RNA sequence: CAAACCCUCCCGGCCAAGGCUAGCCACCAGCCGGAAACCAGCCUUGCGCGUCCUCGGGCAACCGAUGACGUGAAGCGUAGGCGGUGAGCGGGCAGGCCCUGUAUGGAGCCGCGAAAGGAGCGGAUUGCGGGAGCCGACGCUGUUCCAUUAGCGGAAGGCAAUACGGCUCGGCUGUACCGGCUUGGUCGAGUCACCCGCCGCGGUCUAAGACCA
Numbered sequence: 001c002a003a004a005c006c007c008u009c010c011c012g013g014c015c016a017a018g019g020c021u022a023g024c025c026a027c028c029a030g031c032c033g034g035a036a037a038c039c040a041g042c043c044u045u046g047c048g049c050g051u052c053c054u055c056g057g058g059c060a061a062c063c064g065a066u067g068a069c070g071u072g073a074a075g076c077g078u079a080g081g082c083g084g085u086g087a088g089c090g091g092g093c094a095g096g097c098c099c100u101g102u103a104u105g106g107a108g109c110c111g112c113g114a115a116a117g118g119a120g121c122g123g124a125u126u127g128c129g130g131g132a133g134c135c136g137a138c139g140c141u142g143u144u145c146c147a148u149u150a151g152c153g154g155a156a157g158g159c160a161a162u163a164c165g166g167c168u169c170g171g172c173u174g175u176a177c178c179g180g181c182u183u184g185g186u187c188g189a190g191u192c193a194c195c196c197g198c199c200g201c202g203g204u205c206u207a208a209g210a211c212c213a
Stems, first nucleotide, its partner, number of pairs: 010034005018028002022182003037085002041082004045077002047072006054065004106205001108204006127198005133159003138153004166191008
Notes: Shown here is a 213-nucleotide sequence from Thiohalorhabdus denitrificans, a member of the family "Group II catalytic intron D1-D4-6". Rfam 15.1 lists 1,617 matches to the family in 661 species. The organism belongs to Thiohalorhabdus, within Bacteria. The pairing is the family consensus, mapped onto this sequence. The literature on the family includes a 2001 paper in Trends Genet by Bonen and Vogel, "The ins and outs of group II introns".